[Rfam]
RNA sequence: UUUUCCUGCUGGGCCUCACCUCCUCCCGGGGUCCAUGGCAGUAACGGCGGCACUUCUCCUCCUCCCUGGUGUCGCCGUCCUUU
Numbered sequence: 001u002u003u004u005c006c007u008g009c010u011g012g013g014c015c016u017c018a019c020c021u022c023c024u025c026c027c028g029g030g031g032u033c034c035a036u037g038g039c040a041g042u043a044a045c046g047g048c049g050g051c052a053c054u055u056c057u058c059c060u061c062c063u064c065c066c067u068g069g070u071g072u073c074g075c076c077g078u079c080c081u082u083u
Base pairs, nucleotide, nucleotide: 007037008036011034012033013032014031015030016029017028045077046076047075048074049073050072051071052070053069054068
RNA: Conserved CCUCCUCCC motif stress-induced RNA 1
Organism: Cereibacter ovatus